[Rfam]
This 286-nucleotide RNA from Cryptotermes secundus belongs to the Rfam family "Nuclear RNase P".
RNA sequence: GCCAGAUACAAGCUUGCAUCAGGGGCUCACUCACAGGGUACUAGUUACUCAAAAUAGCCCUGGGAAGGUCUGAGUAUGGGUCAAGAAACACUCUAGCUGGGUGGCCCGUUAAAAGGGUGUGAGAGAAUAGAAAUGGAGAGAGUAGAGUGGCAAUUGUCUGGGAUGCCAGUGUGGCUGAGGCUGAGCUGCUUAACUUUCAUGGAAACUCUCAUGACCUGCAGUUUGAGUGCAAUGUGCAAGUAGGACAUCAUGUCCCUAACUCAAUUCAGACUACUCUGUUGCUGGC
Numbered sequence: 001g002c003c004a005g006a007u008a009c010a011a012g013c014u015u016g017c018a019u020c021a022g023g024g025g026c027u028c029a030c031u032c033a034c035a036g037g038g039u040a041c042u043a044g045u046u047a048c049u050c051a052a053a054a055u056a057g058c059c060c061u062g063g064g065a066a067g068g069u070c071u072g073a074g075u076a077u078g079g080g081u082c083a084a085g086a087a088a089c090a091c092u093c094u095a096g097c098u099g100g101g102u103g104g105c106c107c108g109u110u111a112a113a114a115g116g117g118u119g120u121g122a123g124a125g126a127a128u129a130g131a132a133a134u135g136g137a138g139a140g141a142g143u144a145g146a147g148u149g150g151c152a153a154u155u156g157u158c159u160g161g162g163a164u165g166c167c168a169g170u171g172u173g174g175c176u177g178a179g180g181c182u183g184a185g186c187u188g189c190u191u192a193a194c195u196u197u198c199a200u201g202g203a204a205a206c207u208c209u210c211a212u213g214a215c216c217u218g219c220a221g222u223u224u225g226a227g228u229g230c231a232a233u234g235u236g237c238a239a240g241u242a243g244g245a246c247a248u249c250a251u252g253u254c255c256c257u258a259a260c261u262c263a264a265u266u267c268a269g270a271c272u273a274c275u276c277u278g279u280u281g282c283u284g285g286c
Stems, first nucleotide, its partner, number of pairs: 001286004008279003013240007022061005036050005070269005079216004089103005104118004119212007138198006243255005